[Rfam]
RNA sequence: UUGGCGAAUGCCGGUGUGACUACAUCAUUAGGGGUGACCGGGUCGCGGGUUCGAAUCCCGCCCAUAUUGUGUUUUGAUAUGGUAGCUCAGCGGGUAGAGCAGGAAACGUCUCACCACUCUUUGUCGCCAAAGG
Numbered sequence: 001u002u003g004g005c006g007a008a009u010g011c012c013g014g015u016g017u018g019a020c021u022a023c024a025u026c027a028u029u030a031g032g033g034g035u036g037a038c039c040g041g042g043u044c045g046c047g048g049g050u051u052c053g054a055a056u057c058c059c060g061c062c063c064a065u066a067u068u069g070u071g072u073u074u075u076g077a078u079a080u081g082g083u084a085g086c087u088c089a090g091c092g093g094g095u096a097g098a099g100c101a102g103g104a105a106a107c108g109u110c111u112c113a114c115c116a117c118u119c120u121u122u123g124u125c126g127c128c129a130a131a132g133g
Stems, first nucleotide, its partner, number of pairs: 002129006013115004018110002038103002045061005052094001062082008085100004